The record is a 188-nucleotide sequence from Babjeviella inositovora, which matches "Small nucleolar RNA snR8" in Rfam. A search with the family's covariance model found it, with a score of 88 bits. The literature on the family includes a 1988 paper in Mol Cell Biol by Parker et al., "Genetic analysis of small nuclear RNAs in Saccharomyces cerevisiae: viable sextuple mutant". Its family is annotated with RNA processing and nucleolus in the Gene Ontology. NCBI's taxonomy places the organism under Eukaryota, Opisthokonta, saccharomyceta, Saccharomycotina, Babjeviella inositovora.

[Rfam]
RNA sequence: CCCUUCUUUGAUACGAACGCUUCCCAUUCACUGCACCAUUCGCUUAAAUGAAUGAUUGGAGGGGAAAGGGCAAGCCAGAAAAACACCGUCGAACACGUCCUCAUACCGAGCUUUGCGUCUACCAUGCUAUAUCUACGGAUUGCGCAUGGUUAUCAGGCAUAUUAUGGUACUGCGUUUUCGAUAUAUCU
Numbered sequence: 001c002c003c004u005u006c007u008u009u010g011a012u013a014c015g016a017a018c019g020c021u022u023c024c025c026a027u028u029c030a031c032u033g034c035a036c037c038a039u040u041c042g043c044u045u046a047a048a049u050g051a052a053u054g055a056u057u058g059g060a061g062g063g064g065a066a067a068g069g070g071c072a073a074g075c076c077a078g079a080a081a082a083a084c085a086c087c088g089u090c091g092a093a094c095a096c097g098u099c100c101u102c103a104u105a106c107c108g109a110g111c112u113u114u115g116c117g118u119c120u121a122c123c124a125u126g127c128u129a130u131a132u133c134u135a136c137g138g139a140u141u142g143c144g145c146a147u148g149g150u151u152a153u154c155a156g157g158c159a160u161a162u163u164a165u166g167g168u169a170c171u172g173c174g175u176u177u178u179c180g181a182u183a184u185a186u187c188u
Base pairs, nucleotide, nucleotide: 019075020074023070031061032060034058035057037054038053039052040051041050088182089181090180091179092178095175096174097173106167107166108165110163112161114159115158116157118156